[Rfam]
RNA: Eukaryotic large subunit ribosomal RNA, nucleotides 1437 to 1870
Nucleotides: 434
Base pairs, nucleotide, nucleotide: 015033016032018030019029020028034432035431036430037429043412044411045410046409049392050391054078057075059073063071064070085388087386089146090145094140095139096112097111098110100109101108102107119133121131150167151166153164154163170384171383173381175380176379177378179376180374188195189194204361205360207358208357209356213346214345215344216343219340220339221338222337223336224335226331227330228329229249230248231247232246233245234244254301255300256299262292263291264290265289266288267287271283273281274280310325311324312323313322314321315320398407399406414426415425416424417423
Number, partner (000 for none) and nucleotide at each position: 001000a002000g003000u004000a005000g006000u007000a008000g009000c010000a011000a012000a013000u014000a015033c016032u017000c018030a019029a020028a021000u022000a023000a024000g025000a026000a027000c028020u029019u030018u031000a032016a033015g034432g035431a036430c037429u038000g039000a040000a041000g042000u043412g044411g045410g046409g047000a048000a049392a050391g051000g052000u053000u054078c055000c056000a057075u058000a059073u060000a061000a062000a063071c064070a065000g066000c067000a068000g069000u070064u071063g072000g073059a074000c075057a076000c077000a078054g079000g080000u081000u082000a083000g084000u085388c086000a087386a088000u089146c090145c091000u092000a093000a094140g095139a096112g097111a098110u099000a100109g101108g102107g103000c104000a105000a106000c107102u108101c109100c110098a111097u112096u113000u114000u115000a116000a117000u118000g119133u120000c121131g122000g123000c124000g125000c126000u127000u128000g129000c130000g131121c132000u133119g134000c135000g136000c137000c138000c139095u140094c141000a142000a143000a144000a145090g146089g147000g148000a149000a150167g151166c152000c153164a154163g155000u156000u157000a158000a159000u160000a161000u162000u163154c164153u165000a166151g167150c168000a169000c170384c171383u172000a173381g174000a175380u176379g177378u178000a179376g180374a181000u182000u183000c184000u185000c186000c187000a188195c189194a190000g191000c192000a193000a194189u195188g196000c197000a198000a199000c200000u201000g202000a203000g204361a205360g206000c207358g208357g209356a210000g211000a212000c213346c214345u215344u216343g217000g218000c219340g220339g221338g222337a223336g224335c225000c226331c227330c228329g229249a230248g231247a232246a233245g234244a235000g236000u237000u238000c239000u240000c241000u242000u243000u244234u245233c246232u247231u248230c249229u250000u251000a252000a253000c254301g255300g256299u257000c258000u259000g260000u261000c262292a263291c264290c265289c266288u267287g268000a269000a270000a271283u272000c273281a274280g275000u276000u277000u278000g279000u280274c281273u282000a283271g284000a285000g286000c287267u288266a289265g290264g291263g292262u293000u294000u295000a296000a297000u298000a299256g300255c301254c302000a303000g304000a305000a306000g307000a308000g309000c310325g311324c312323c313322g314321c315320a316000c317000u318000u319000u320315u321314g322313u323312g324311g325310c326000a327000u328000u329228c330227g331226g332000u333000g334000c335224g336223c337222u338221c339220c340219c341000a342000a343216c344215g345214a346213g347000c348000c349000u350000u351000a352000a353000a354000a355000a356209u357208c358207c359000a360205c361204u362000u363000g364000a365000a366000g367000a368000a369000a370000u371000a372000g373000u374180u375000u376179u377000c378177a379176c380175g381173c382000c383171a384170g385000g386087u387000c388085g389000u390000a391050c392049u393000c394000a395000u396000a397000a398407c399406c400000g401000c402000a403000g404000c405000a406399g407398g408000u409046c410045u411044c412043c413000a414426a415425g416424g417423u418000g419000a420000a421000a422000a423417g424416c425415c426414u427000c428000u429037a430036g431035u432034u433000g434000a